[Rfam]
RNA sequence: AGCUGGUGCAACCCGCGGAUGGCCUCCCAGCUCCGCGCAGCAGCUGUUCCCUCUGGAGGUGAAAACCUUCAUACCUAUGGGCCUCGGUUUCCGAUGGCCCAUUUUU
Number, nucleotide and partner (000 for none) at each position: 001a045002g044003c043004u042005g041006g000007u039008g038009c037010a000011a000012c000013c000014c000015g036016c035017g034018g033019a000020u000021g000022g000023c000024c000025u000026c000027c000028c000029a000030g000031c000032u000033c018034c017035g016036c015037g009038c008039a007040g000041c005042a004043g003044c002045u001046g000047u000048u000049c000050c000051c000052u000053c000054u071055g070056g069057a068058g067059g066060u065061g000062a000063a000064a000065a060066c059067c058068u057069u056070c055071a054072u000073a000074c000075c000076u000077a000078u101079g100080g099081g098082c097083c096084u094085c093086g092087g091088u000089u000090u000091c087092c086093g085094a084095u000096g083097g082098c081099c080100c079101a078102u000103u000104u000105u000106u000
Background
Alphaproteobacterial ar15: a 106-nucleotide sequence from Rhizobium tibeticum. The organism belongs to Rhizobium, within Bacteria. A search with the family's covariance model found it, with a score of 83 bits. Clan: suhB sRNA clan. Pairs were carried over by alignment from the consensus structure. Its family is annotated with protein binding in the Gene Ontology. Rfam classes the family as a small RNA.